RNA: Na+ riboswitch aptamer (DUF1646)
RNA sequence: GGUUGGACGGAUAGCAGGAACCAUCCGUUUUCAAGAGAAACCAAGUUUCUGGGGUGGGAAGCU
Number, nucleotide and partner (000 for none) at each position: 001g000002g000003u034004u033005g032006g029007a028008c027009g026010g025011a024012u000013a000014g000015c000016a000017g000018g000019a000020a000021c000022c000023a000024u011025c010026c009027g008028u007029u006030u000031u000032c005033a004034a003035g000036a000037g000038a000039a000040a000041c000042c000043a000044a063045g062046u061047u060048u059049c058050u057051g000052g000053g000054g000055u000056g000057g050058g049059a048060a047061g046062c045063u044